[Rfam]
RNA sequence: UAGUUGGUGCAAGUCCAACCACGGGAGGGACCAAGCCACCCUUGUAGCUAGGAUGCUUGCGUAUGGCGAAAUCUGUGCGUAAAAGCGCAUCGACAAAAGUACUUGUCAGAGGCAGGGCGAGCGACAUACUAGGCCGUAACAUCA
Dot-bracket structure: ...................((.((...............)).)).......(((((((((((...(......)...))))))....))))).......(..(((((.....))))).)..(((...........))).......

A member of the RNA family "Group II catalytic intron D1-D4-4" from Paenibacillus sp. Root444D2, 144 nucleotides long. From the family's description: Group II introns are found in rRNA, tRNA and mRNA of organelles in fungi, plants and protists, and also in mRNA in bacteria. On this family, see Bonen and Vogel, Trends Genet 2001: "The ins and outs of group II introns". It scores 85 bits against the family's covariance model.